Glycine riboswitch aptamer: a 97-nucleotide RNA from Undibacterium sp. KW1. Its Rfam clan is "Glycine riboswitch clan".
[Rfam]
RNA sequence: CAAACAAUAUCGGGAGAGACUGCCAAAUAAAGAUUGUGGCAGCGCCGAAGGAGCAACCGCCCCGGAAACUCUCAGGCAAAAGGACCGUUAUUGUUUU
Numbered sequence: 001c002a003a004a005c006a007a008u009a010u011c012g013g014g015a016g017a018g019a020c021u022g023c024c025a026a027a028u029a030a031a032g033a034u035u036g037u038g039g040c041a042g043c044g045c046c047g048a049a050g051g052a053g054c055a056a057c058c059g060c061c062c063c064g065g066a067a068a069c070u071c072u073c074a075g076g077c078a079a080a081a082g083g084a085c086c087g088u089u090a091u092u093g094u095u096u097u
Stems, first nucleotide, its partner, number of pairs: 006092004011087003020042006044077003047073002051071003057065002